Rfam assigns this 104-nucleotide sequence from Rhinopithecus roxellana to the family "mir-1250 microRNA precursor family". The family's consensus secondary structure was predicted with RNAalifold. Rfam links the family to the GO terms miRNA-mediated post-transcriptional gene silencing and RISC complex.

RNA sequence: UCUCGCUGGCCUGGACGGUGAUGGCGCUGAAUGUGGCCUUUUUACCUUUUCCAAAGGCCACAUUUUCCAGCCCGUUCACCCUUCCAGAGCCCUCUGAGGUGGCC
Numbered sequence: 001u002c003u004c005g006c007u008g009g010c011c012u013g014g015a016c017g018g019u020g021a022u023g024g025c026g027c028u029g030a031a032u033g034u035g036g037c038c039u040u041u042u043u044a045c046c047u048u049u050u051c052c053a054a055a056g057g058c059c060a061c062a063u064u065u066u067c068c069a070g071c072c073c074g075u076u077c078a079c080c081c082u083u084c085c086a087g088a089g090c091c092c093u094c095u096g097a098g099g100u101g102g103c104c
Stems, first nucleotide, its partner, number of pairs: 003102005008091003011087004017081002019078003023073002026071004031066001032062010